[Rfam]
RNA: Purine riboswitch aptamer
Organism: Oceanobacillus indicireducens
RNA sequence: GAAAAAGUGAAUAAAACACCUCAUAUAUUUCAUGGAGAAUAUGGCUCCGAAGUUUCUACCCUUGACCGUAAAUCUAAGGACUAUGAGGGGAGAUGGGUCAUUA
Numbered sequence: 001g002a003a004a005a006a007g008u009g010a011a012u013a014a015a016a017c018a019c020c021u022c023a024u025a026u027a028u029u030u031c032a033u034g035g036a037g038a039a040u041a042u043g044g045c046u047c048c049g050a051a052g053u054u055u056c057u058a059c060c061c062u063u064g065a066c067c068g069u070a071a072a073u074c075u076a077a078g079g080a081c082u083a084u085g086a087g088g089g090g091a092g093a094u095g096g097g098u099c100a101u102u103a
Stems, first nucleotide, its partner, number of pairs: 019088007029051003034048004060079004064074002